Shown here is a 130-nucleotide sequence from Spodoptera exigua, a member of the family "Small nucleolar RNA psi18S-841/snoR66".
Rfam's curators write: psi18S-841 is a member of the H/ACA class of snoRNA. This family is responsible for guiding the modification of uridine 841 in Drosophila 18S rRNA to pseudouridine.
RNA sequence: UGCAAGGGCACUCUGUGUUAUUCAUUCAAUAUGAUAAUUACAAUUUGUUACCUUGCUAUAAUAAUUCUACCAAAUCCUAUUCUAUGUGAGCUUGCACAUGGCUACAUGGUCAUAGUGGUAGAUACAUUUG
Numbered sequence: 001u002g003c004a005a006g007g008g009c010a011c012u013c014u015g016u017g018u019u020a021u022u023c024a025u026u027c028a029a030u031a032u033g034a035u036a037a038u039u040a041c042a043a044u045u046u047g048u049u050a051c052c053u054u055g056c057u058a059u060a061a062u063a064a065u066u067c068u069a070c071c072a073a074a075u076c077c078u079a080u081u082c083u084a085u086g087u088g089a090g091c092u093u094g095c096a097c098a099u100g101g102c103u104a105c106a107u108g109g110u111c112a113u114a115g116u117g118g119u120a121g122a123u124a125c126a127u128u129u130g
Base pairs, nucleotide, nucleotide: 002056003055004054005053006052007051010048011047014042015041016040017038018037019036020035021034023033024032063128064127068122070118071117072116075114082109084107085106086105087104088103

Pairs were carried over by alignment from the consensus structure, which was predicted with RNAfold.